[Rfam]
Rfam assigns this 122-nucleotide RNA from Breoghania corrubedonensis to the family "Alphaproteobacterial ar14".
RNA sequence: GUUUGCGUCCCUGAAGCUACCUCCUCCCAGGCUUCAUGGACGUUCCGACGGGGCCACCUCCUCCCAGGCCCCAAGGAAAAAAGGCGCUCGCCGGUACCUCCUCCCACCGGCGAGCGCUUUUU
Numbered sequence: 001g002u003u004u005g006c007g008u009c010c011c012u013g014a015a016g017c018u019a020c021c022u023c024c025u026c027c028c029a030g031g032c033u034u035c036a037u038g039g040a041c042g043u044u045c046c047g048a049c050g051g052g053g054c055c056a057c058c059u060c061c062u063c064c065c066a067g068g069c070c071c072c073a074a075g076g077a078a079a080a081a082a083g084g085c086g087c088u089c090g091c092c093g094g095u096a097c098c099u100c101c102u103c104c105c106a107c108c109g110g111c112g113a114g115c116g117c118u119u120u121u122u
Base pairs, nucleotide, nucleotide: 007041008040009039012036013035014034015033016032017031046076050072051071052070053069054068055067084117085116086115087114088113089112090111091110092109093108094107
From the family's description: Smr14C2 was renamed NfeR1 (Nodule Formation Efficiency RNA) highly expressed in salt stress and during the symbiotic interaction on legume roots. It is annotated as a small RNA. The base pairs follow the family's consensus structure. The organism belongs to Breoghania, within Bacteria.